[Rfam]
RNA sequence: UAUCUGAUUGAUCCUGUCUGAAUUGAUGUGCUUAUUUUAAAGAUUAAGCCAUGCAUGUGUAAGUACAAUGUUUUAAACAUGAAACCGCGGAAAGCUCAUUAUAACAGCUAUAGACUACACGGUAAAUAUUUUAGUUGGAUAACUGAGGUAAUUCUUGAGCUAAUACACGCUUUUUAUACCACAUUAGUGGUGCGUUUAUUUGAUUAAACCAUUUUUUCGGUUGACUCAAAAUAUCCUCGCUGAUUUUGUUACUAAAACAUACCGUAUGUGUAUCUGGUUUAUCAACUUUCGAUGGUAGGGUAUUGGCCUACCAUGGUUGUGACGGAUAACGGAGAAUUAGGGUUCGACUCCGGAGAGGGAGCCUGAGAAACGGCUACCACAUCCAAGGAAGGCAGCAGGCGCGAAAAUUACCCAAUUUUAGUUAAAAGAGGUAGUGACGAAAAAUGACAACCAAAUAUUAUUUUUAGUAUUUGGAUUGAAAAUCUUCAAGUUUAAAUAACUUGUUGGUAAAGGAAAGGGCAAGUCUGGUGCCAGCAGCCGCGGUAAUACCAGCUUUCCAAGUGCAUAAAAUGAUUGUUG
Number, nucleotide and partner (000 for none) at each position: 001u000002a000003u000004c020005u000006g018007a017008u016009u000010g000011a000012u000013c000014c000015u000016g008017u007018c006019u000020g004021a000022a000023u568024u567025g000026a566027u565028g564029u563030g562031c561032u560033u000034a000035u442036u441037u440038u439039a000040a000041a435042g402043a000044u000045u000046a000047a000048g400049c399050c398051a000052u397053g396054c395055a000056u000057g088058u087059g000060u000061a000062a000063g085064u084065a000066c000067a000068a080069u079070g000071u000072u000073u000074u000075a000076a000077a000078c000079a069080u068081g000082a000083a000084a064085c063086c000087g058088c057089g000090g000091a000092a000093a000094g000095c355096u354097c353098a000099u000100u000101a000102u000103a000104a000105c276106a275107g274108c000109u000110a271111u270112a000113g000114a269115c268116u000117a000118c000119a000120c264121g263122g262123u261124a000125a000126a000127u000128a000129u000130u000131u000132u000133a000134g000135u000136u167137g166138g000139a000140u000141a000142a000143c159144u158145g000146a156147g155148g154149u000150a000151a000152u000153u000154c148155u147156u146157g000158a144159g143160c000161u000162a000163a000164u000165a000166c137167a136168c000169g000170c000171u000172u000173u000174u000175u000176a000177u000178a191179c190180c189181a188182c187183a000184u000185u000186a000187g182188u181189g180190g179191u178192g000193c000194g000195u000196u000197u233198a232199u231200u230201u229202g000203a000204u000205u000206a000207a000208a000209c000210c000211a221212u220213u219214u000215u000216u000217u000218c000219g213220g212221u211222u000223g000224a000225c000226u000227c000228a000229a201230a200231a199232u198233a197234u000235c000236c000237u000238c000239g000240c000241u000242g000243a000244u257245u256246u255247u254248g000249u000250u000251a000252c000253u000254a247255a246256a245257a244258c000259a000260u000261a123262c122263c121264g120265u000266a000267u000268g115269u114270g111271u110272a000273u000274c107275u106276g105277g000278u326279u325280u324281a000282u000283c000284a000285a317286c316287u315288u000289u000290c000291g000292a314293u313294g312295g311296u310297a309298g308299g307300g000301u000302a000303u000304u000305g000306g000307c299308c298309u297310a296311c295312c294313a293314u292315g287316g286317u285318u000319g000320u000321g000322a000323c000324g280325g279326a278327u000328a000329a000330c352331g351332g350333a349334g345335a344336a343337u342338u000339a000340g000341g000342g337343u336344u335345c334346g000347a000348c000349u333350c332351c331352g330353g097354a096355g095356a000357g378358g377359g000360a375361g374362c373363c000364u000365g000366a000367g000368a000369a000370a000371c000372g000373g362374c361375u360376a000377c358378c357379a000380c391381a000382u389383c388384c000385a000386a000387g000388g383389a382390a000391g380392g000393c000394a000395g054396c053397a052398g050399g049400c048401g000402c042403g000404a000405a000406a000407a000408u433409u000410a432411c431412c430413c000414a000415a000416u428417u427418u426419u425420a000421g000422u000423u000424a000425a419426a418427a417428g416429a000430g412431g411432u410433a408434g000435u041436g000437a000438c000439g038440a037441a036442a035443a000444a000445u000446g000447a000448c478449a477450a476451c474452c473453a472454a471455a470456u469457a468458u467459u466460a465461u000462u000463u000464u000465u460466a459467g458468u457469a456470u455471u454472u453473g452474g451475a000476u450477u449478g448479a000480a000481a000482a000483u000484c000485u000486u000487c000488a000489a501490g500491u499492u000493u000494a000495a000496a000497u000498a000499a491500c490501u489502u000503g000504u000505u000506g000507g000508u000509a000510a000511a000512g558513g557514a556515a555516a554517g553518g000519g000520c000521a000522a000523g000524u000525c552526u551527g550528g549529u000530g000531c000532c000533a000534g541535c540536a000537g000538c000539c000540g535541c534542g000543g000544u000545a000546a000547u000548a000549c528550c527551a526552g525553c517554u516555u515556u514557c513558c512559a000560a032561g031562u030563g029564c028565a027566u026567a024568a023569a000570a000571u000572g000573a000574u000575u000576g000577u000578u000579g000
Rfam assigns this 579-nucleotide part of an RNA from Strongyloides ratti to the family "Eukaryotic small subunit ribosomal RNA". On this family, see Yusupov et al., Science 2001: "Crystal structure of the ribosome at 5.5 A resolution". The source organism's lineage runs through Eukaryota, Metazoa, Ecdysozoa, Panagrolaimomorpha and Strongyloides.